[Rfam]
RNA sequence: UAUAAAGAGCGCAAGGGGAAUGCCUUGGCAUCAAGAGCCGAAGAAGGUCGUGACAAGCUGCGAUAAGCCGUGGGGAGCUGCACAUGAGCAUUGAUCCACGGAUCACCGAAUGGGGGAACCCGGCAGAGCAAUACUCUGUCAGCGUGCGUUGAAUCAAAUAGGCGUACGUGGGGCACCGCCUGAACUGAAACAUCUAAGUAGGGCGAGGAAGAGAAAUCAACAGAGAUCCCGCAAGUAGUGGCGAGCGAACGCGGGAGAGGGCAAACCGAAGGAAUGAUCCUUCGGGGUUGUGGACUGACACAACGGGCCGAUAGGCUAGGCGAACGGCAUGGGAAGGCCGGCCAUAGCGGGUGAGAGCCCCGUAGCCGAAAGCUGAGUCGAUCCAGUCAGGAUCCAGAGUACCGCAGGACACGUGAAACCCUGUGGGAAGCUGGGGGGACCACCCUCCAACCCUAAAUACUACUUGAUGACCGAUAGAGGAGCAGUACCGUGAGGGAAAGGUGAAAAGGACCCCGGGAGGGGAGUGAAAUAGAACCUGAAACCUUGUGCUCACAAG
Numbered sequence: 001u002a003u004a005a006a007g008a009g010c011g012c013a014a015g016g017g018g019a020a021u022g023c024c025u026u027g028g029c030a031u032c033a034a035g036a037g038c039c040g041a042a043g044a045a046g047g048u049c050g051u052g053a054c055a056a057g058c059u060g061c062g063a064u065a066a067g068c069c070g071u072g073g074g075g076a077g078c079u080g081c082a083c084a085u086g087a088g089c090a091u092u093g094a095u096c097c098a099c100g101g102a103u104c105a106c107c108g109a110a111u112g113g114g115g116g117a118a119c120c121c122g123g124c125a126g127a128g129c130a131a132u133a134c135u136c137u138g139u140c141a142g143c144g145u146g147c148g149u150u151g152a153a154u155c156a157a158a159u160a161g162g163c164g165u166a167c168g169u170g171g172g173g174c175a176c177c178g179c180c181u182g183a184a185c186u187g188a189a190a191c192a193u194c195u196a197a198g199u200a201g202g203g204c205g206a207g208g209a210a211g212a213g214a215a216a217u218c219a220a221c222a223g224a225g226a227u228c229c230c231g232c233a234a235g236u237a238g239u240g241g242c243g244a245g246c247g248a249a250c251g252c253g254g255g256a257g258a259g260g261g262c263a264a265a266c267c268g269a270a271g272g273a274a275u276g277a278u279c280c281u282u283c284g285g286g287g288u289u290g291u292g293g294a295c296u297g298a299c300a301c302a303a304c305g306g307g308c309c310g311a312u313a314g315g316c317u318a319g320g321c322g323a324a325c326g327g328c329a330u331g332g333g334a335a336g337g338c339c340g341g342c343c344a345u346a347g348c349g350g351g352u353g354a355g356a357g358c359c360c361c362g363u364a365g366c367c368g369a370a371a372g373c374u375g376a377g378u379c380g381a382u383c384c385a386g387u388c389a390g391g392a393u394c395c396a397g398a399g400u401a402c403c404g405c406a407g408g409a410c411a412c413g414u415g416a417a418a419c420c421c422u423g424u425g426g427g428a429a430g431c432u433g434g435g436g437g438g439a440c441c442a443c444c445c446u447c448c449a450a451c452c453c454u455a456a457a458u459a460c461u462a463c464u465u466g467a468u469g470a471c472c473g474a475u476a477g478a479g480g481a482g483c484a485g486u487a488c489c490g491u492g493a494g495g496g497a498a499a500g501g502u503g504a505a506a507a508g509g510a511c512c513c514c515g516g517g518a519g520g521g522g523a524g525u526g527a528a529a530u531a532g533a534a535c536c537u538g539a540a541a542c543c544u545u546g547u548g549c550u551c552a553c554a555a556g
Stems, first nucleotide, its partner, number of pairs: 007551010022536001023501002027472002029469007036461002038172002046107003049062003068101007077089003112121003122140007142169009176207001177205005187194002217224002227457001228255005238246002258454004266285007291396003295390005305383002308380001310378001312376001314374004319367003325340004343347001349361003402426007433448005488495002511522004

The record is a 556-nucleotide part of an RNA from bacterium 1xD42-67, which matches "Bacterial large subunit ribosomal RNA" in Rfam. Its family is annotated with ribosome and structural constituent of ribosome in the Gene Ontology.